This 85-nucleotide sequence from Triplophysa tibetana belongs to the Rfam family "Small nucleolar RNA snR60/Z15/Z230/Z193/J17". By type it is a C/D-box small nucleolar RNA.
RNA sequence: GUGAUGCAAGUGAUGAUAGCAUAGUUCAGCAGAAUAACCAUGUAGAACACAGAGCAAUGUCUUUCGCUCCUAACUGAUGCAUCAU
Numbered sequence: 001g002u003g004a005u006g007c008a009a010g011u012g013a014u015g016a017u018a019g020c021a022u023a024g025u026u027c028a029g030c031a032g033a034a035u036a037a038c039c040a041u042g043u044a045g046a047a048c049a050c051a052g053a054g055c056a057a058u059g060u061c062u063u064u065c066g067c068u069c070c071u072a073a074c075u076g077a078u079g080c081a082u083c084a085u
Stems, first nucleotide, its partner, number of pairs: 004082005